[Rfam]
RNA sequence: UUGCAAGUCAGGCUCCUGCCUGGAGUCCAGCUCUAAGCUGGAUCCAGGCUCUAGCCAGGGCUUGACUGCAGU
Numbered sequence: 001u002u003g004c005a006a007g008u009c010a011g012g013c014u015c016c017u018g019c020c021u022g023g024a025g026u027c028c029a030g031c032u033c034u035a036a037g038c039u040g041g042a043u044c045c046a047g048g049c050u051c052u053a054g055c056c057a058g059g060g061c062u063u064g065a066c067u068g069c070a071g072u
Stems, first nucleotide, its partner, number of pairs: 007066003011062004017057002020054005027041005
Shown here is a 72-nucleotide RNA sequence from Rattus norvegicus, a member of the family "mir-344 microRNA precursor family". Pairs were carried over by alignment from the consensus structure, which was predicted with RNAalifold. Lineage of the source: Eukaryota > Mammalia > Euarchontoglires > Muridae > Rattus.